The record is a 308-nucleotide RNA from Colocasia esculenta, which matches "Plant signal recognition particle RNA" in Rfam. Clan: SRP clan. A search with the family's covariance model found it, with a score of 225 bits.
RNA sequence: GCCGAGCUCAGCAGCGCGAGCUUGUAACCCGAGCGGGGGGCAUUAAGAUGGUUGAAUGGUGUGGUCCCGCUUCGAUGGGUGGGUUUGCGGUGUGCUCUCUGCUGGCCUGCCCAUUCCAAGUCAGGCAGCUGAGCCUUGCGACUUGGGCGAAGGCCUGUGGUUGCGCAGUUCCUAAAGCGGAGGGCACCGCGUGAGGCUGGUUUCACAGAGCAGCGUUCACUUCCCGUUCUUGACGGUGGAAGGAUAACAGGCCGGUGCACACCCAGCCCAUUAGUCCUAGAAGCGACCAUCAUUAGACAACCAUCUUU
Numbered sequence: 001g002c003c004g005a006g007c008u009c010a011g012c013a014g015c016g017c018g019a020g021c022u023u024g025u026a027a028c029c030c031g032a033g034c035g036g037g038g039g040g041c042a043u044u045a046a047g048a049u050g051g052u053u054g055a056a057u058g059g060u061g062u063g064g065u066c067c068c069g070c071u072u073c074g075a076u077g078g079g080u081g082g083g084u085u086u087g088c089g090g091u092g093u094g095c096u097c098u099c100u101g102c103u104g105g106c107c108u109g110c111c112c113a114u115u116c117c118a119a120g121u122c123a124g125g126c127a128g129c130u131g132a133g134c135c136u137u138g139c140g141a142c143u144u145g146g147g148c149g150a151a152g153g154c155c156u157g158u159g160g161u162u163g164c165g166c167a168g169u170u171c172c173u174a175a176a177g178c179g180g181a182g183g184g185c186a187c188c189g190c191g192u193g194a195g196g197c198u199g200g201u202u203u204c205a206c207a208g209a210g211c212a213g214c215g216u217u218c219a220c221u222u223c224c225c226g227u228u229c230u231u232g233a234c235g236g237u238g239g240a241a242g243g244a245u246a247a248c249a250g251g252c253c254g255g256u257g258c259a260c261a262c263c264c265a266g267c268c269c270a271u272u273a274g275u276c277c278u279a280g281a282a283g284c285g286a287c288c289a290u291c292a293u294u295a296g297a298c299a300a301c302c303a304u305c306u307u308u
Stems, first nucleotide, its partner, number of pairs: 001041003004023006028038001029036002045307010057295005062289005070283004075278001077277002081269005087263001092260003096257001102255008111243002114241005120234006127228003131171004137165007144157005172177001179224005189216004197208003
Dot-bracket structure: (((((((((........))))))....(((....)).))))...((((((((((..((((((((((...((((.(.((..(((((.(....(((.(.....((((((((.((.(((((.((((((.(((.((((..((((((((((((....))))).)))))))..))))(....).(((((.....((((....(((......)))....))))...))))).)))))))))..)))))))....)))))))).))))..).)))))......))).)))).))))).)))))..)))))))))).